[Rfam]
RNA sequence: CUGAGCACUUGGCCCUGAGAACUGAAUUCCAUAGAUGGUGGUCAGGAGGAGCUCAUCUAUGGGCUCAGUUCUUCUGGCAGAGUGUUCCAU
Dot-bracket structure: .......((..((....((((((((.......((((..................))))......))))))))....))..))........
RNA: mir-146 microRNA precursor family
Organism: Astyanax mexicanus